Annotation
Shown here is a 176-nucleotide RNA sequence from Pampusana beccarii, a member of the family "Small Cajal body specific RNA 16". The family's RNA type in Rfam is small Cajal body RNA. The family's consensus secondary structure was predicted with RNAfold. scaRNAs are a specific class of small nuclear RNAs which localise to the Cajal bodies and guide the modification of RNA polymerase II transcribed spliceosomal RNAs U1, U2, U4, U5 and U12. ACA47 belongs to the H/ACA box class of guide RNAs as it has the predicted hairpin-hinge-hairpin-tail structure, the conserved H/ACA-box motifs and is found associated with GAR1. ACA47 is predicted to guide the pseudouridylation of residue U5 of the U1 spliceosomal snRNA. Taxonomically the source falls in Pampusana (Eukaryota, Bilateria, Amniota, Theropoda).
[Rfam]
RNA sequence: GGGGGCUGGGGACGGGCUGCUGGGCGGUGGGUCGCUGGCCCAGCCCGGUCCCUGCCAGCCCCCCCCCGUGCCCCAGAUCAGCUCCCGGGAGCCCCGCACUGGGGUUCUCCCUUGCAGUAACAGGUGUGAGCAUCCAUACAGCAUUUUGAUGGUCAUGUAUGAUACUGCAUACAACA
Numbered sequence: 001g002g003g004g005g006c007u008g009g010g011g012a013c014g015g016g017c018u019g020c021u022g023g024g025c026g027g028u029g030g031g032u033c034g035c036u037g038g039c040c041c042a043g044c045c046c047g048g049u050c051c052c053u054g055c056c057a058g059c060c061c062c063c064c065c066c067c068g069u070g071c072c073c074c075a076g077a078u079c080a081g082c083u084c085c086c087g088g089g090a091g092c093c094c095c096g097c098a099c100u101g102g103g104g105u106u107c108u109c110c111c112u113u114g115c116a117g118u119a120a121c122a123g124g125u126g127u128g129a130g131c132a133u134c135c136a137u138a139c140a141g142c143a144u145u146u147u148g149a150u151g152g153u154c155a156u157g158u159a160u161g162a163u164a165c166u167g168c169a170u171a172c173a174a175c176a
Stems, first nucleotide, its partner, number of pairs: 003073004008066003015060004019055002022052001024051001026045003030041001031039003084103003087099001089097001091095001113169007121161002127155003131151004138145001
Its family is annotated with nucleolus and RNA processing in the Gene Ontology. The family has 37 seed sequences and 790 matches in Rfam 15.1.